This 97-nucleotide RNA from Nelumbo nucifera belongs to the Rfam family "Small nucleolar RNA Z161/Z228". The family is grouped with related families in Rfam's "SNORD35 clan". Rfam links the family to the GO terms nucleolus and RNA processing.
[Rfam]
Nucleotides: 097
Stems, first nucleotide, its partner, number of pairs: 001097002004094001050059003
Number, partner (000 for none) and nucleotide at each position: 001097a002096a003000a004094c005000c006000a007000g008000g009000u010000g011000a012000u013000g014000a015000a016000u017000u018000u019000g020000g021000a022000u023000u024000c025000a026000a027000a028000a029000u030000c031000u032000c033000a034000c035000g036000a037000c038000g039000g040000u041000c042000g043000u044000c045000u046000g047000a048000g049000a050059c051058g052057c053000u054000a055000c056000c057052g058051c059050g060000u061000c062000g063000a064000u065000u066000u067000u068000g069000a070000u071000g072000c073000a074000g075000a076000u077000g078000u079000u080000c081000c082000a083000a084000a085000a086000u087000u088000u089000c090000u091000g092000a093000u094004g095000g096002u097001u

Notes
Rfam 15.1 lists 630 matches to the family in 214 species.